[Rfam]
Rfam assigns this 165-nucleotide RNA sequence from Parahoeflea olei to the family "Rhizobiales sRNA Atu_C9". By type it is a small RNA. NCBI's taxonomy places the organism under Bacteria, Pseudomonadati, Hyphomicrobiales, Rhizobiaceae, Parahoeflea. It scores 69 bits against the family's covariance model. A reference for the family is Wilms et al. (2012), "Deep sequencing uncovers numerous small RNAs on all four replicons of the plant pathogen Agrobacterium tumefaciens", RNA Biol.

RNA sequence: GGUAAACGCGAUGGAGGACCACCAUGGGAUUUACGCAAUCGCUCAACGCCCUUGUGAUCUGUGCAGCGUUCAUUUUUGUUGGUGCAAUGCUCUUUAUCUGACCUCGACGAGCAUUGAAUAACAGUCAAAAGUUUGAAGACGGGAGCGCACAGGCGUUCCCGUUUU
Numbered sequence: 001g002g003u004a005a006a007c008g009c010g011a012u013g014g015a016g017g018a019c020c021a022c023c024a025u026g027g028g029a030u031u032u033a034c035g036c037a038a039u040c041g042c043u044c045a046a047c048g049c050c051c052u053u054g055u056g057a058u059c060u061g062u063g064c065a066g067c068g069u070u071c072a073u074u075u076u077u078g079u080u081g082g083u084g085c086a087a088u089g090c091u092c093u094u095u096a097u098c099u100g101a102c103c104u105c106g107a108c109g110a111g112c113a114u115u116g117a118a119u120a121a122c123a124g125u126c127a128a129a130a131g132u133u134u135g136a137a138g139a140c141g142g143g144a145g146c147g148c149a150c151a152g153g154c155g156u157u158c159c160c161g162u163u164u165u
Stems, first nucleotide, its partner, number of pairs: 016050002019048001026042001028040002136165013